[Rfam]
RNA sequence: AGGCAGGGCUUUCCUGCCCUUCCUUAAAUCGUUCCUUCGGGAAC
Numbered sequence: 001a002g003g004c005a006g007g008g009c010u011u012u013c014c015u016g017c018c019c020u021u022c023c024u025u026a027a028a029u030c031g032u033u034c035c036u037u038c039g040g041g042a043a044c
Stems, first nucleotide, its partner, number of pairs: 002023002005020005031044005
PhotoRC-I RNA: a 44-nucleotide RNA.